[Rfam]
RNA sequence: GUUCUUGCAGGAGAUGGCAUUCUCCUGGAACCGCCCUGACGGGCUAAUGAUGCCUACCGGCCU
Numbered sequence: 001g002u003u004c005u006u007g008c009a010g011g012a013g014a015u016g017g018c019a020u021u022c023u024c025c026u027g028g029a030a031c032c033g034c035c036c037u038g039a040c041g042g043g044c045u046a047a048u049g050a051u052g053c054c055u056a057c058c059g060g061c062c063u
Stems, first nucleotide, its partner, number of pairs: 010025004016054006033044004
RNA: Fluoride riboswitch aptamer (crcB RNA motif)
Organism: Paraburkholderia acidiphila